A member of the RNA family "Small nucleolar RNA SNORD59" from Nothoprocta perdicaria, 74 nucleotides long.
Rfam 15.1 lists 1,355 matches to the family in 620 species.
The source organism's lineage runs through Eukaryota, Vertebrata, Tetrapoda, Amniota and Nothoprocta.
On this family, see Galardi et al., Mol Cell Biol 2002: "Purified box C/D snoRNPs are able to reproduce site-specific 2'-O-methylation of target RNA in vitro".
RNA sequence: CCUUCGCUGAUGAGUGACCAUUUGACUUUCGUUCUCCUGAGCUCGCUGAAGCAACCUGUGAUUCUCUGAGGAGG
Numbered sequence: 001c002c003u004u005c006g007c008u009g010a011u012g013a014g015u016g017a018c019c020a021u022u023u024g025a026c027u028u029u030c031g032u033u034c035u036c037c038u039g040a041g042c043u044c045g046c047u048g049a050a051g052c053a054a055c056c057u058g059u060g061a062u063u064c065u066c067u068g069a070g071g072a073g074g
Stems, first nucleotide, its partner, number of pairs: 001074003005070001